This 123-nucleotide sequence from Dissostichus mawsoni belongs to the Rfam family "Small nucleolar RNA SNORA17". Rfam's curators write: snoRNA ACA 17 belongs to the H/ACA family of snoRNAs and is predicted to guide pseudouridylation of the 28S rRNA at positions U4659 and U4598. Lineage of the source: Eukaryota > Craniata > Clupeocephala > Euteleosteomorpha > Dissostichus. Its Rfam clan is "SNORA17 clan".
RNA sequence: AUUGCCCCUUGAGGCGUUGCAGCCCAGCCGAUGUGUUCAGCUGUGUCACAGGGAGGCAGACAGACGGUGGUAGUCUGCACUGAGACUCACUCUGAGAGCUCGGAGUGGUUCUCACCACAGAUC
Numbered sequence: 001a002u003u004g005c006c007c008c009u010u011g012a013g014g015c016g017u018u019g020c021a022g023c024c025c026a027g028c029c030g031a032u033g034u035g036u037u038c039a040g041c042u043g044u045g046u047c048a049c050a051g052g053g054a055g056g057c058a059g060a061c062a063g064a065c066g067g068u069g070g071u072a073g074u075c076u077g078c079a080c081u082g083a084g085a086c087u088c089a090c091u092c093u094g095a096g097a098g099c100u101c102g103g104a105g106u107g108g109u110u111c112u113c114a115c116c117a118c119a120g121a122u123c
Base pairs, nucleotide, nucleotide: 002059003058004057005056006055007053008052009051010050011049013047014046015045019044020043021042022041023040026037027036028035065120067118068117069116070115071114078107079106081102082101084099087096

On this family, see Ofengand and Bakin, J Mol Biol 1997: "Mapping to nucleotide resolution of pseudouridine residues in large subunit ribosomal RNAs from representative eukaryotes, prokaryotes, archaebacteria, mitochondria and chloroplasts". Its family is annotated with nucleolus and RNA processing in the Gene Ontology.